[Rfam]
This 68-nucleotide sequence belongs to the Rfam family "ilvH RNA".
The sequence is in the family's curated seed alignment.

RNA sequence: GACGAAUCUAUUGCCCGCCAAGCCCGCGCAUUACCGUGCGCGGGGGAGGGCGGCGAAAAGAGGAAUCG
Numbered sequence: 001g002a003c004g005a006a007u008c009u010a011u012u013g014c015c016c017g018c019c020a021a022g023c024c025c026g027c028g029c030a031u032u033a034c035c036g037u038g039c040g041c042g043g044g045g046g047a048g049g050g051c052g053g054c055g056a057a058a059a060g061a062g063g064a065a066u067c068g
Stems, first nucleotide, its partner, number of pairs: 011056003015053005023044009